[Rfam]
RNA sequence: GUCUCAUACAGGCACACCCGUCGAAAGGCGGGGUCGCAAAGGCACGGGACCUUCGGGUUCGCCGGCCUACACAC
Numbered sequence: 001g002u003c004u005c006a007u008a009c010a011g012g013c014a015c016a017c018c019c020g021u022c023g024a025a026a027g028g029c030g031g032g033g034u035c036g037c038a039a040a041g042g043c044a045c046g047g048g049a050c051c052u053u054c055g056g057g058u059u060c061g062c063c064g065g066c067c068u069a070c071a072c073a074c
Stems, first nucleotide, its partner, number of pairs: 012037002017032006040068004045064003048059003
A member of the RNA family "c-di-GMP-I riboswitch aptamer" from Cryobacterium sp. MDB2-A-2, 74 nucleotides long. Its family is annotated with cyclic-di-GMP binding in the Gene Ontology. Lineage of the source: Bacteria > Bacillati > Actinomycetota > Micrococcales > Cryobacterium. It scores 50 bits against the family's covariance model.